[Rfam]
RNA sequence: CUUCUGCCCCUCACCGCACAGGGGGGUGGAGCGCGAUCCGCGGCGCUUUCUGCCCUGACGGCGUCCGGACGCGUGUCGCUCCGGGCUGCGGUGCCGGAAGGGCUGAGGGUCCCUCCCCGGCGC
Numbered sequence: 001c002u003u004c005u006g007c008c009c010c011u012c013a014c015c016g017c018a019c020a021g022g023g024g025g026g027u028g029g030a031g032c033g034c035g036a037u038c039c040g041c042g043g044c045g046c047u048u049u050c051u052g053c054c055c056u057g058a059c060g061g062c063g064u065c066c067g068g069a070c071g072c073g074u075g076u077c078g079c080u081c082c083g084g085g086c087u088g089c090g091g092u093g094c095c096g097g098a099a100g101g102g103c104u105g106a107g108g109g110u111c112c113c114u115c116c117c118c119g120g121c122g123c
Stems, first nucleotide, its partner, number of pairs: 003030004008025005033072003037069001039067002042065002045062002047058002077093004082088002096117002099114004
Dot-bracket structure: ..((((.(((((........))))).))))..(((.(.((.((.((((........))..)).)))).))))....((((.((...)).))))..((.((((........)))).))......
This 123-nucleotide sequence from Streptomyces alkaliphilus belongs to the Rfam family "Streptomyces sRNA scr5239".
Its family is annotated with mRNA binding and negative regulation of translation in the Gene Ontology.
Lineage of the source: Bacteria > Bacillati > Kitasatosporales > Streptomycetaceae > Streptomyces.
It is annotated as a small RNA.
It scores 64 bits against the family's covariance model.
The base pairs follow the family's consensus structure, which is taken from published work.